[Rfam]
RNA: SAM riboswitch aptamer (S box leader)
RNA sequence: GCACCAUCUCGAGCGGCCGAGAGAUCCGGCUUGUUGACGCCGCAGCAACCAGUCCGAAGGGGACGGGUGCUAACGCCGGAACCGAUGGAAG
Numbered sequence: 001g002c003a004c005c006a007u008c009u010c011g012a013g014c015g016g017c018c019g020a021g022a023g024a025u026c027c028g029g030c031u032u033g034u035u036g037a038c039g040c041c042g043c044a045g046c047a048a049c050c051a052g053u054c055c056g057a058a059g060g061g062g063a064c065g066g067g068u069g070c071u072a073a074c075g076c077c078g079g080a081a082c083c084g085a086u087g088g089a090a091g
Stems, first nucleotide, its partner, number of pairs: 004088005013043005021032003026079004044071004049067002052064003075083001